[Rfam]
RNA sequence: AACCCCCCGAUUUCUAGCUAUCAACUUGGCGGAAGGUGACUAGACAUCGAGGGGUUAGGUAUAAACCUAUGAAGGAUUAUAACGCAUGUUUGCUCUAAAACAACCCCAUUCUGCCAUAAGC
Numbered sequence: 001a002a003c004c005c006c007c008c009g010a011u012u013u014c015u016a017g018c019u020a021u022c023a024a025c026u027u028g029g030c031g032g033a034a035g036g037u038g039a040c041u042a043g044a045c046a047u048c049g050a051g052g053g054g055u056u057a058g059g060u061a062u063a064a065a066c067c068u069a070u071g072a073a074g075g076a077u078u079a080u081a082a083c084g085c086a087u088g089u090u091u092g093c094u095c096u097a098a099a100a101c102a103a104c105c106c107c108a109u110u111c112u113g114c115c116a117u118a119a120g121c
Base pairs, nucleotide, nucleotide: 002055003054004053005052006051008049009048010047011046013044014043015042016041017040019038021036022035027116028115029114030113031112032111033110